Rfam assigns this 96-nucleotide RNA from Exilibacterium tricleocarpae to the family "Group II catalytic intron D1-D4-1". The source organism's lineage runs through Bacteria, Pseudomonadati, Cellvibrionales, Cellvibrionaceae and Exilibacterium. From the family's description: Group II introns are found in rRNA, tRNA and mRNA of organelles in fungi, plants and protists, and also in mRNA in bacteria. The base pairs follow the family's consensus structure. The match comes from Rfam's covariance-model search (67 bits).
[Rfam]
RNA sequence: CGCCUCUGCCAGCAAUGGUAGCGGUGAUUUGUCAGAAGUCAGCAGACGGCAUAGUAGCCAAAUACUCAACGUAAUGGUUGAGACAGGGCGAAGGCC
Numbered sequence: 001c002g003c004c005u006c007u008g009c010c011a012g013c014a015a016u017g018g019u020a021g022c023g024g025u026g027a028u029u030u031g032u033c034a035g036a037a038g039u040c041a042g043c044a045g046a047c048g049g050c051a052u053a054g055u056a057g058c059c060a061a062a063u064a065c066u067c068a069a070c071g072u073a074a075u076g077g078u079u080g081a082g083a084c085a086g087g088g089c090g091a092a093g094g095c096c
Base pairs, nucleotide, nucleotide: 001026002025004023006021007020008019009018010017011016038047039046040045048096049095050094057089058088059087066081067080
Dot-bracket structure: ((.(.((((((....)))))).).))...........(((....)))(((......(((......((............)).....)))....)))